[Rfam]
RNA sequence: CCCGCUGUUCCGUCAGCGGUAGCCUACCGACCGAUGCACCUUAAUGUUGUAUUAAGCGGUCGGGACGAAGUACACUUUCGCAAGACAAGACAGAACCGUGAGGGGAAGUCAAGUACGGUUAGUAUCAUACCGUAGAGUGG
Numbered sequence: 001c002c003c004g005c006u007g008u009u010c011c012g013u014c015a016g017c018g019g020u021a022g023c024c025u026a027c028c029g030a031c032c033g034a035u036g037c038a039c040c041u042u043a044a045u046g047u048u049g050u051a052u053u054a055a056g057c058g059g060u061c062g063g064g065a066c067g068a069a070g071u072a073c074a075c076u077u078u079c080g081c082a083a084g085a086c087a088a089g090a091c092a093g094a095a096c097c098g099u100g101a102g103g104g105g106a107a108g109u110c111a112a113g114u115a116c117g118g119u120u121a122g123u124a125u126c127a128u129a130c131c132g133u134a135g136a137g138u139g140g
Stems, first nucleotide, its partner, number of pairs: 002019006028062005033053006040046001078085002086113001089110001096103002115133005

A member of the RNA family "Group II catalytic intron D1-D4-7" from Bacteroides ovatus, 140 nucleotides long. On this family, see Bonen and Vogel, Trends Genet 2001: "The ins and outs of group II introns". The base pairs follow the family's consensus structure.